The record is a 213-nucleotide sequence from Nonomuraea montanisoli, which matches "Actinobacteria sRNA Ms_IGR-5" in Rfam.
The pairing is the family consensus, mapped onto this sequence.
It scores 57 bits against the family's covariance model.
RNA sequence: ACGCGGAAAGGAGGUGGUCCAAACAAUGGUGAUUCAUAGUUGGGCUAGCGAGGUGGUUGUCCGCUGACGAUGCGGACGCCCCGUCUCGCGCCGUUCGGCGAAUUCGAGGCAACCACCGGGGCCCCCGGCGGCUGGAGGGCGGGAAUCCCAUCCCGACCAUGGUCCAUCCAGCCCGCUCACCAUCGAGCGGAGCACGCCCGGGGCCCUUUUUUA
Numbered sequence: 001a002c003g004c005g006g007a008a009a010g011g012a013g014g015u016g017g018u019c020c021a022a023a024c025a026a027u028g029g030u031g032a033u034u035c036a037u038a039g040u041u042g043g044g045c046u047a048g049c050g051a052g053g054u055g056g057u058u059g060u061c062c063g064c065u066g067a068c069g070a071u072g073c074g075g076a077c078g079c080c081c082c083g084u085c086u087c088g089c090g091c092c093g094u095u096c097g098g099c100g101a102a103u104u105c106g107a108g109g110c111a112a113c114c115a116c117c118g119g120g121g122c123c124c125c126c127g128g129c130g131g132c133u134g135g136a137g138g139g140c141g142g143g144a145a146u147c148c149c150a151u152c153c154c155g156a157c158c159a160u161g162g163u164c165c166a167u168c169c170a171g172c173c174c175g176c177u178c179a180c181c182a183u184c185g186a187g188c189g190g191a192g193c194a195c196g197c198c199c200g201g202g203g204c205c206c207u208u209u210u211u212u213a
Base pairs, nucleotide, nucleotide: 013061014060015059016058017057018056062100063099064098065097066096067095068093069092072089073088074087118207119206120205121204122203123202124201125200127198128197129196130195133186